RNA sequence: GACUCCCUCCCGGGAGAGAGCAGGUCCUUGUGCCUGCCGCCGAAGGCGCAACCGCCCCGGAAACGCUCAGGCAAAAGGACCGGGAGAGACCU
Numbered sequence: 001g002a003c004u005c006c007c008u009c010c011c012g013g014g015a016g017a018g019a020g021c022a023g024g025u026c027c028u029u030g031u032g033c034c035u036g037c038c039g040c041c042g043a044a045g046g047c048g049c050a051a052c053c054g055c056c057c058c059g060g061a062a063a064c065g066c067u068c069a070g071g072c073a074a075a076a077g078g079a080c081c082g083g084g085a086g087a088g089a090c091c092u
Stems, first nucleotide, its partner, number of pairs: 007086007020037004039072003042068002046066003052060002
The family of this 92-nucleotide RNA from Henriciella algicola is "Glycine riboswitch aptamer". NCBI's taxonomy places the organism under Bacteria, Alphaproteobacteria, Hyphomonadales, Hyphomonadaceae, Henriciella.